The record is a 131-nucleotide RNA sequence from Tripterygium wilfordii, which matches "Small nucleolar RNA snoR77" in Rfam.
The organism belongs to Tripterygium, within Eukaryota.
The match comes from Rfam's covariance-model search (83 bits).
The family's consensus secondary structure was predicted with WAR.
For this family Rfam cites "Experimental RNomics: identification of 140 candidates for small non-messenger RNAs in the plant Arabidopsis thaliana" (Marker et al., Curr Biol, 2002).
Rfam links the family to the GO terms RNA processing and nucleolus.
RNA sequence: AGGCAGCCACUUUGCAGUAUAUAUUAGGCAAAGCAGGUGUUGGAAUGCUCGUAUAUUGAAUUUACUUGGGCUUCUCAGACUUUCUGAGAGAUUGAUUUCCUUGAAGCUGGUAUAGUAAGCCCAAAUACAUC
Dot-bracket structure: .((((.((.((((((............))))))..))))))........................((..(((....(.(((..((..(((......))).....))..))).)....)))..)).......